This 67-nucleotide RNA from Gymnodraco acuticeps belongs to the Rfam family "Small nucleolar RNA SNORD42". It scores 41 bits against the family's covariance model. For this family Rfam cites "Purified box C/D snoRNPs are able to reproduce site-specific 2'-O-methylation of target RNA in vitro" (Galardi et al., Mol Cell Biol, 2002). Taxonomically the source falls in Gymnodraco (Eukaryota, Eumetazoa, Teleostei, Eupercaria).
RNA sequence: GUGCAAGUGAUGUAAAUUUUAUUGCGUCUGAAUAAAAAUGAUGCACUCAAAGGAACCACUGAUGCGA
Numbered sequence: 001g002u003g004c005a006a007g008u009g010a011u012g013u014a015a016a017u018u019u020u021a022u023u024g025c026g027u028c029u030g031a032a033u034a035a036a037a038a039u040g041a042u043g044c045a046c047u048c049a050a051a052g053g054a055a056c057c058a059c060u061g062a063u064g065c066g067a
Stems, first nucleotide, its partner, number of pairs: 002066004